[Rfam]
RNA sequence: AGUUGAGGUAGAGGCGCGAAAACCAUAAGUACCCUCCUACCAGAUUGGGAAUCGAAGACGGGAGCGGAAAAGGGGAAUUCGCCGAAGUGCAUGGUGCUGCCCAAGUGCCUUGUGCUGGGUCUGUGUUGAAGAAACACAGGACUGUCAUCUGCCUGAUCUACCCGUCAAGCAGAUGGAGAGCUAUCUCACGG
Numbered sequence: 001a002g003u004u005g006a007g008g009u010a011g012a013g014g015c016g017c018g019a020a021a022a023c024c025a026u027a028a029g030u031a032c033c034c035u036c037c038u039a040c041c042a043g044a045u046u047g048g049g050a051a052u053c054g055a056a057g058a059c060g061g062g063a064g065c066g067g068a069a070a071a072g073g074g075g076a077a078u079u080c081g082c083c084g085a086a087g088u089g090c091a092u093g094g095u096g097c098u099g100c101c102c103a104a105g106u107g108c109c110u111u112g113u114g115c116u117g118g119g120u121c122u123g124u125g126u127u128g129a130a131g132a133a134a135c136a137c138a139g140g141a142c143u144g145u146c147a148u149c150u151g152c153c154u155g156a157u158c159u160a161c162c163c164g165u166c167a168a169g170c171a172g173a174u175g176g177a178g179a180g181c182u183a184u185c186u187c188a189c190g191g
Stems, first nucleotide, its partner, number of pairs: 006186006016082005023075002032067002034064005086116006093109005117143002120140008145176007
The family of this 191-nucleotide RNA sequence from Brevibacillus fluminis is "Lysine riboswitch aptamer". From the family's description: Riboswitches are metabolite binding domains within certain messenger RNAs that serve as precision sensors for their corresponding targets. Allosteric rearrangement of mRNA structure is mediated by ligand binding, and this results in modulation of gene expression. This family includes riboswitches that sense lysine in a number of genes involved in lysine metabolism, including lysC. NCBI's taxonomy places the organism under Bacteria, Bacilli, Caryophanales, Paenibacillaceae, Brevibacillus.